The family of this 93-nucleotide RNA sequence from Filobacillus milosensis is "Selenocysteine transfer RNA". A reference for the family is Mizutani and Goto (2000), "Eukaryotic selenocysteine tRNA has the 9/4 secondary structure", FEBS Lett.
RNA sequence: GGGGCUGGUUACAACGCUGGUGCUUGUCACGGUCUUCAAAACCGCCUGGGAGGCGCGUGUCGUCUCCGGUGGGUUCGAUUCCCACACAGUCCC
Number, nucleotide and partner (000 for none) at each position: 001g093002g092003g091004g090005c089006u088007g087008g085009u000010u000011a027012c026013a025014a024015c000016g023017c022018u000019g000020g000021u000022g017023c016024u014025u013026g012027u011028c000029a000030c044031g043032g042033u041034c000035u000036u000037c000038a000039a000040a000041a033042c032043c031044g030045c000046c000047u000048g000049g067050g066051a065052g064053g063054c000055g000056c000057g000058u000059g000060u000061c000062g000063u053064c052065u051066c050067c049068g000069g000070u084071g083072g082073g081074u000075u000076c000077g000078a000079u000080u000081c073082c072083c071084a070085c008086a000087c007088a006089g005090u004091c003092c002093c001